A member of the RNA family "mir-124 microRNA precursor family" from Electrophorus electricus, 73 nucleotides long. Taxonomically the source falls in Electrophorus (Eukaryota, Deuterostomia, Vertebrata, Actinopterygii). Its family is annotated with RISC complex and miRNA-mediated post-transcriptional gene silencing in the Gene Ontology. Pairs were carried over by alignment from the consensus structure, which was predicted with PFOLD.
RNA sequence: AGCUCUUUGUGUUCACAGUGGACCUUGAUUUUAUUUAAAAAACAAUUAAGGCACGCGGUGAAUGCCAAGAGAA
Numbered sequence: 001a002g003c004u005c006u007u008u009g010u011g012u013u014c015a016c017a018g019u020g021g022a023c024c025u026u027g028a029u030u031u032u033a034u035u036u037a038a039a040a041a042a043c044a045a046u047u048a049a050g051g052c053a054c055g056c057g058g059u060g061a062a063u064g065c066c067a068a069g070a071g072a073a
Stems, first nucleotide, its partner, number of pairs: 003071004009065008018056003023051008